[Rfam]
RNA sequence: AUUUGGUAAGGGCAAACUUAUCGAAAGAUAAGGACGCAAAGCUUAGGGUCUAAAUCUGAUUACAGAUACGACAGCCGGUUGCACAA
Numbered sequence: 001a002u003u004u005g006g007u008a009a010g011g012g013c014a015a016a017c018u019u020a021u022c023g024a025a026a027g028a029u030a031a032g033g034a035c036g037c038a039a040a041g042c043u044u045a046g047g048g049u050c051u052a053a054a055u056c057u058g059a060u061u062a063c064a065g066a067u068a069c070g071a072c073a074g075c076c077g078g079u080u081g082c083a084c085a086a
Stems, first nucleotide, its partner, number of pairs: 012037002017032006040080004046076002048072003055066004
RNA: c-di-GMP-I riboswitch aptamer
Organism: Anaerocolumna sedimenticola